Rfam assigns this 100-nucleotide RNA sequence from Terrabacter aerolatus to the family "Glycine riboswitch aptamer". Rfam describes the family as follows. This family represents the bacterial glycine riboswitch. Lineage of the source: Bacteria > Bacillati > Actinomycetes > Micrococcales > Terrabacter. The pairing is the family consensus, mapped onto this sequence.
RNA sequence: CGACCCUGCGUGGGAGAGUCCUCGGGGUGCGCUGCACCUGCGAGGCGCCGAAGGGGCAACAUCCCCGGAACCUCUCAGGCGCCAGGACCAUGCGGGUGAG
Numbered sequence: 001c002g003a004c005c006c007u008g009c010g011u012g013g014g015a016g017a018g019u020c021c022u023c024g025g026g027g028u029g030c031g032c033u034g035c036a037c038c039u040g041c042g043a044g045g046c047g048c049c050g051a052a053g054g055g056g057c058a059a060c061a062u063c064c065c066c067g068g069a070a071c072c073u074c075u076c077a078g079g080c081g082c083c084a085g086g087a088c089c090a091u092g093c094g095g096g097u098g099a100g
Stems, first nucleotide, its partner, number of pairs: 006095008020045004047080003050076002054074003060067001